Purine riboswitch aptamer: a 98-nucleotide RNA from Clostridium frigidicarnis.
Rfam describes the family as follows. Riboswitches are metabolite binding domains within certain messenger RNAs that serve as precision sensors for their corresponding targets. Allosteric rearrangement of mRNA structure is mediated by ligand binding, and this results in modulation of gene expression. A class of riboswitches that selectively recognises guanine and becomes saturated at concentrations as low as 5 nM. In Bacillus subtilis, this mRNA motif is located on at least five separate transcriptional units that together encode 17 genes that are mostly involved in purine transport and purine nucleotide biosynthesis. It has also been shown that some members of this family are specific for adenine instead.
The family's consensus secondary structure is taken from published work.
RNA sequence: AAAUAAAUAUUGCAUUUUACUCGUAUAUACCCUGAAUAUGGCAGGGAGUAUCUACCGGGAACCUAAAAUUCCUGACUAUGAGUGAAUUUAGUUUGUUA
Numbered sequence: 001a002a003a004u005a006a007a008u009a010u011u012g013c014a015u016u017u018u019a020c021u022c023g024u025a026u027a028u029a030c031c032c033u034g035a036a037u038a039u040g041g042c043a044g045g046g047a048g049u050a051u052c053u054a055c056c057g058g059g060a061a062c063c064u065a066a067a068a069u070u071c072c073u074g075a076c077u078a079u080g081a082g083u084g085a086a087u088u089u090a091g092u093u094u095g096u097u098a
Base pairs, nucleotide, nucleotide: 018084019083020082021081022080023079024078025077030046031045032044033043034042056074057073058072059071060070061069
It scores 74 bits against the family's covariance model.